The family of this 253-nucleotide sequence from Streptomyces sp. SID8111 is "Streptomyces sRNA 4677".
Rfam's curators write: Located in the intergenic region between anti-sigma factor SCO4677 gene and a putative regulatory protein gene SCO4676. scr4677 expression requires the SCO4677 activity and scr4677 sRNA itself seem to affect the levels of the SCO4676-associated transcripts.
The family has 12 seed sequences and 563 matches in Rfam 15.1.
It scores 196 bits against the family's covariance model.
RNA sequence: GGUUCCGGUGCCGUCGGCGGCUGAAGGACAAGGAACGAGGGGGAAAGAACUCCCACCGAGCCCCACCCCUCCCGCCCGUGGCCGCGCUCACUCGGGCGGGUGAACAUCUCCGCUUCGGCUGGAUUUCGCAGCCCCCGAGGCCCGACGCUCAGCACGACGAACGCACCACCCCGACCACAGACAUGAGACGGCCCCCGCCGGGACGGCAAUCCCACUGCGAGGGCCUGACCACCGAGGAAGCAGGACCUUCCUG
Numbered sequence: 001g002g003u004u005c006c007g008g009u010g011c012c013g014u015c016g017g018c019g020g021c022u023g024a025a026g027g028a029c030a031a032g033g034a035a036c037g038a039g040g041g042g043g044a045a046a047g048a049a050c051u052c053c054c055a056c057c058g059a060g061c062c063c064c065a066c067c068c069c070u071c072c073c074g075c076c077c078g079u080g081g082c083c084g085c086g087c088u089c090a091c092u093c094g095g096g097c098g099g100g101u102g103a104a105c106a107u108c109u110c111c112g113c114u115u116c117g118g119c120u121g122g123a124u125u126u127c128g129c130a131g132c133c134c135c136c137g138a139g140g141c142c143c144g145a146c147g148c149u150c151a152g153c154a155c156g157a158c159g160a161a162c163g164c165a166c167c168a169c170c171c172c173g174a175c176c177a178c179a180g181a182c183a184u185g186a187g188a189c190g191g192c193c194c195c196c197g198c199c200g201g202g203a204c205g206g207c208a209a210u211c212c213c214a215c216u217g218c219g220a221g222g223g224c225c226u227g228a229c230c231a232c233c234g235a236g237g238a239a240g241c242a243g244g245a246c247c248u249u250c251c252u253g
Stems, first nucleotide, its partner, number of pairs: 007233004016076004088103006118153005190225005196219003200213004236251005
Rfam classes the family as a small RNA. For this family Rfam cites "Complex intra-operonic dynamics mediated by a small RNA in Streptomyces coelicolor" (Hindra et al., PLoS One, 2014). The source organism's lineage runs through Bacteria, Bacillati, Actinomycetota, Streptomycetaceae and Streptomyces.